[Rfam]
RNA: Small nucleolar RNA SNORA11
RNA sequence: GGGAGAUGCUGUUGCAGAAGAAAAAGGAGACUUCUGCUUAGAAUAUUUCCAAUGGGAAGACCAGAAUACUUUCUUUAAUAAUUAAAAAGUUGUCUUUUUUUAAAAAAAAAUUUCUUCCAAAA
Numbered sequence: 001g002g003g004a005g006a007u008g009c010u011g012u013u014g015c016a017g018a019a020g021a022a023a024a025a026g027g028a029g030a031c032u033u034c035u036g037c038u039u040a041g042a043a044u045a046u047u048u049c050c051a052a053u054g055g056g057a058a059g060a061c062c063a064g065a066a067u068a069c070u071u072u073c074u075u076u077a078a079u080a081a082u083u084a085a086a087a088a089g090u091u092g093u094c095u096u097u098u099u100u101u102a103a104a105a106a107a108a109a110a111u112u113u114c115u116u117c118c119a120a121a122a
Stems, first nucleotide, its partner, number of pairs: 002050007014037007063115004070108003075104002078097001080095001083092003
Dot-bracket structure: .(((((((.....(((((((..........)))))))......)))))))............((((...(((..((.(.(..(((....)))..).).....)).)))...)))).......